[Rfam]
RNA sequence: ACUUUAUCAAGAGUGGUGGAGGGACUGGCCCUAUGAAACCCGGCAACCGGCCAAUGACUUGGCGGCGGUGCCAACUCCUGCGGGACAAUGAUGUCCGAAAGAUGAGGU
Numbered sequence: 001a002c003u004u005u006a007u008c009a010a011g012a013g014u015g016g017u018g019g020a021g022g023g024a025c026u027g028g029c030c031c032u033a034u035g036a037a038a039c040c041c042g043g044c045a046a047c048c049g050g051c052c053a054a055u056g057a058c059u060u061g062g063c064g065g066c067g068g069u070g071c072c073a074a075c076u077c078c079u080g081c082g083g084g085a086c087a088a089u090g091a092u093g094u095c096c097g098a099a100a101g102a103u104g105a106g107g108u
Base pairs, nucleotide, nucleotide: 001108002107003106004105005104006103007102008101013041015040016039017038021031022030023029025080027078028077042072043071044070045069047068048067050063051062052061076100081097082096083095084094
RNA: SAM riboswitch aptamer (S box leader)
Organism: Desulfotomaculum nigrificans